[Rfam]
RNA sequence: UGGCGCCCACGCGACUGGCGCAGUCAAGGUGGAGACGACCACCGGGGAGCGAAAGUAGUCCGCACACCGCGCGCCUGGGUGUACGGG
Numbered sequence: 001u002g003g004c005g006c007c008c009a010c011g012c013g014a015c016u017g018g019c020g021c022a023g024u025c026a027a028g029g030u031g032g033a034g035a036c037g038a039c040c041a042c043c044g045g046g047g048a049g050c051g052a053a054a055g056u057a058g059u060c061c062g063c064a065c066a067c068c069g070c071g072c073g074c075c076u077g078g079g080u081g082u083a084c085g086g087g
Stems, first nucleotide, its partner, number of pairs: 005056002010051003015046002017075005029042004064082005
ZMP/ZTP riboswitch aptamer (pfl RNA motif): an 87-nucleotide sequence from Actinomadura coerulea. Lineage of the source: Bacteria > Actinomycetota > Streptosporangiales > Thermomonosporaceae > Actinomadura. The base pairs follow the family's consensus structure, which is taken from published work. It scores 50 bits against the family's covariance model.